Overview: This 54-nucleotide sequence from Salvelinus namaycush belongs to the Rfam family "UnaL2 LINE 3' element". The family's consensus secondary structure is taken from published work. Taxonomically the source falls in Salvelinus (Eukaryota, Eumetazoa, Bilateria, Neopterygii). A search with the family's covariance model found it, with a score of 62 bits. The family's RNA type in Rfam is cis-regulatory element.
[Rfam]
RNA sequence: UGCACACGUGACUAUAAGUUGCUUUGGAUAAAAGCAUCUGCUAAAUGGCAUGUA
Numbered sequence: 001u002g003c004a005c006a007c008g009u010g011a012c013u014a015u016a017a018g019u020u021g022c023u024u025u026g027g028a029u030a031a032a033a034g035c036a037u038c039u040g041c042u043a044a045a046u047g048g049c050a051u052g053u054a
Stems, first nucleotide, its partner, number of pairs: 013043001015040002020036006